RNA sequence: AACGUUCAUCCCCUCUCGCAAAUCAGAGGAGACGGAAGUAAGGGAUAUUCCUGAAGGAACGCGCU
Number, nucleotide and partner (000 for none) at each position: 001a000002a000003c061004g060005u059006u058007c057008a000009u032010c031011c000012c029013c028014u027015c026016u025017c000018g000019c000020a000021a000022a000023u000024c000025a016026g015027a014028g013029g012030a000031g010032a009033c000034g000035g062036a000037a000038g000039u000040a000041a052042g051043g050044g000045a000046u000047a000048u000049u000050c043051c042052u041053g000054a000055a000056g000057g007058a006059a005060c004061g003062c035063g000064c000065u000